[Rfam]
RNA sequence: AUACUUACCUGGACGGGGUCAAUGGGUGAUCAAGAAGGCCCAUGGCCUAGGGCAGUGACCUCCAUUGCACUUGGGAGGGGUGCUGCUCUAAGGUCUCCCCAAGUGGGAGAGCCUACGUCAUAAUUUGUGGCAGCGGGGGCCUGCGUUCGCGCGGCCCCUUC
Numbered sequence: 001a002u003a004c005u006u007a008c009c010u011g012g013a014c015g016g017g018g019u020c021a022a023u024g025g026g027u028g029a030u031c032a033a034g035a036a037g038g039c040c041c042a043u044g045g046c047c048u049a050g051g052g053c054a055g056u057g058a059c060c061u062c063c064a065u066u067g068c069a070c071u072u073g074g075g076a077g078g079g080g081u082g083c084u085g086c087u088c089u090a091a092g093g094u095c096u097c098c099c100c101a102a103g104u105g106g107g108a109g110a111g112c113c114u115a116c117g118u119c120a121u122a123a124u125u126u127g128u129g130g131c132a133g134c135g136g137g138g139g140c141c142u143g144c145g146u147u148c149g150c151g152c153g154g155c156c157c158c159u160u161c
Stems, first nucleotide, its partner, number of pairs: 012119004016048006023042005049089004055083003059079003062075002091114003094110003098106002135160005142153004